[Rfam]
This 60-nucleotide RNA sequence from Electrophorus electricus belongs to the Rfam family "mir-7552 microRNA precursor family". Pairs were carried over by alignment from the consensus structure, which was predicted with RNAalifold. The source organism's lineage runs through Eukaryota, Chordata, Actinopterygii, Otophysi and Electrophorus. The match comes from Rfam's covariance-model search (71 bits). The family has 4 seed sequences and 220 matches in Rfam 15.1.
RNA sequence: UUACAAUUAAAGGAUAUUUCUUGCGAAUAUACAAACGGAAAUAUCUCUUAAUUGUUUGGU
Numbered sequence: 001u002u003a004c005a006a007u008u009a010a011a012g013g014a015u016a017u018u019u020c021u022u023g024c025g026a027a028u029a030u031a032c033a034a035a036c037g038g039a040a041a042u043a044u045c046u047c048u049u050a051a052u053u054g055u056u057u058g059g060u
Base pairs, nucleotide, nucleotide: 003055004054005053006052007051008050009049010048012046013045014044015043016042017041018040019039020038021037025032